Overview:
The record is a 63-nucleotide sequence from Camelus dromedarius, which matches "U7 small nuclear RNA" in Rfam.

RNA sequence: AAGUGUUAACGGCACUUUUAGAAUUUGUCUGGCAGGCUUUCUGACCUGUACCAGAAAACCCCC
Numbered sequence: 001a002a003g004u005g006u007u008a009a010c011g012g013c014a015c016u017u018u019u020a021g022a023a024u025u026u027g028u029c030u031g032g033c034a035g036g037c038u039u040u041c042u043g044a045c046c047u048g049u050a051c052c053a054g055a056a057a058a059c060c061c062c063c
Stems, first nucleotide, its partner, number of pairs: 035060002038057006